[Rfam]
Nucleotides: 079
Stems, first nucleotide, its partner, number of pairs: 004075003009070006016063005022057003026054009
Number, partner (000 for none) and nucleotide at each position: 001000c002000u003000u004075u005074c006073u007000g008000c009070a010069c011068a012067g013066g014065u015000u016063g017062g018061g019060a020059u021000u022057g023056g024055u025000u026054g027053c028052a029051a030050u031049g032048c033047u034046g035000u036000u037000g038000u039000g040000c041000u042000u043000g044000a045000c046034u047033g048032g049031u050030a051029u052028u053027g054026c055024a056023c057022u058000u059020g060019u061018c062017c063016c064000g065014g066013c067012c068011u069010g070009u071000u072000g073006a074005g075004g076000a077000u078000g079000g
The record is a 79-nucleotide sequence from Leptobrachium leishanense, which matches "mir-92 microRNA precursor family" in Rfam. Pairs were carried over by alignment from the consensus structure, which was predicted with PFOLD. It scores 82 bits against the family's covariance model. Rfam describes the family as follows. This family represents the microRNA precursor mir-92. Human miR-92 has two predicted hairpin precursor sequences: mir-92-1 on chromosome 13 and mir-92-2 on chromosome X. miR-92 has also been cloned from mouse embryonic stem cells. The mature sequence is excised from the 3' arm of the hairpin. The literature on the family includes a 2002 paper in Genes Dev by Mourelatos et al., "miRNPs: a novel class of ribonucleoproteins containing numerous microRNAs". Gene Ontology terms of the family: RISC complex and miRNA-mediated post-transcriptional gene silencing. Taxonomically the source falls in Leptobrachium (Eukaryota, Bilateria, Craniata, Batrachia).